RNA sequence: GAACCAGCGAACAAUUCAGUUGCGAGAUUCGAGGUUUCAGUCUGAAUCA
Numbered sequence: 001g002a003a004c005c006a007g008c009g010a011a012c013a014a015u016u017c018a019g020u021u022g023c024g025a026g027a028u029u030c031g032a033g034g035u036u037u038c039a040g041u042c043u044g045a046a047u048c049a
Base pairs, nucleotide, nucleotide: 001036002035004033008031009030011029012026015046016045017044018043019042
Notes:
This 49-nucleotide sequence from Polerovirus SAYV belongs to the Rfam family "Exoribonuclease-resistant RNA (xrRNA) plant-infecting virus (class 3)". Rfam's curators write: Exoribonuclease-resistant RNA (xrRNA) plant-infecting virus (class 3) is a ncRNA that was reported in Plant viruses. Taxonomically the source falls in Polerovirus SAYV (Viruses, Pisoniviricetes, Sobelivirales, Polerovirus). On this family, see Gezelle et al., bioRxiv [Preprint] 2024: "The pseudoknot structure of a viral RNA reveals a conserved mechanism for programmed exoribonuclease resistance". It is annotated as a cis-regulatory element.